[Rfam]
Bacterial RNase P class A: a 385-nucleotide RNA sequence from bacterium G20.
RNA sequence: UUGGCUGAUUGCCCCGCACCUUUUCUGGGUGUAGCAGUCUGUAAUCAGAUUGCGUAACGCCACGAAAAGGUGCGGGGAGGAAAGUCCGGGCAGCAAAGGGACUGGUAGUUGCUAACAGCAACCGGGGGCAACCCUAGGGAAAGUGCCACAGAAACGACACAACCUAUCUUCCUAAAGAAGAUCGGAAAUGGUGAAACGAGUGGGGUAAGAGCCCACAGUUUUGGCGGGUGACCGCCAAAAGAGGUAAACCCUGCCUGCUGCAAGGAGAUAUGUCGCAUAUAUAGAGUUCCCGCUCGCGGCAGCAUCAUAAGAACCGCUCGAAUUUAUUGGCAACAAUAAAUCUAGAUAGAUAAUCAGCUAAAACAGAACCCGGCUUACGGAUAAU
Dot-bracket structure: ((((((((((.((((((((((((((......................................))))))))))))))....[[[.[[[[[((((...[[[[..(((((((((.....)))))(((((....)))).)((...(((((............((.((.(((((.......))))).))...)).........(((((.......)))))...((((((((....))))))))...)))..)))))))).))))...((.....(((.((.......(((.]]]].)))...)).))).........))......((((((((....))))))))..........)))))))..........]]]]]]]].).))....
Gene Ontology terms of the family: dimeric ribonuclease P complex, ribonuclease P activity and tRNA processing.